The record is a 65-nucleotide RNA from Pollutimonas bauzanensis, which matches "Fluoride riboswitch aptamer (crcB RNA motif)" in Rfam. A search with the family's covariance model found it, with a score of 55 bits. NCBI's taxonomy places the organism under Bacteria, Pseudomonadati, Burkholderiales, Alcaligenaceae, Pollutimonas.

RNA sequence: UGUGUUACAGGAGAUGGCAUUCCUCCUUAUAACCGCCCAAACCGGCUGAUGAUGCCUACCAAACU
Numbered sequence: 001u002g003u004g005u006u007a008c009a010g011g012a013g014a015u016g017g018c019a020u021u022c023c024u025c026c027u028u029a030u031a032a033c034c035g036c037c038c039a040a041a042c043c044g045g046c047u048g049a050u051g052a053u054g055c056c057u058a059c060c061a062a063a064c065u
Base pairs, nucleotide, nucleotide: 010026011025012024013023016056017055018054019053020052021051035046036045037044
Dot-bracket structure: .........[[[[..((((((.]]]]........(((......)))....)))))).........